[Rfam]
RNA sequence: AAAGUAACAAUACCCUAUAUCUUGCUAAAACAAGAUACGGGGUAUUGCUACUUUGUUU
Numbered sequence: 001a002a003a004g005u006a007a008c009a010a011u012a013c014c015c016u017a018u019a020u021c022u023u024g025c026u027a028a029a030a031c032a033a034g035a036u037a038c039g040g041g042g043u044a045u046u047g048c049u050a051c052u053u054u055g056u057u058u
Stems, first nucleotide, its partner, number of pairs: 001054006008047007019036006
RNA: Plastid-psbA-3 3UTR RNA
Organism: Musa troglodytarum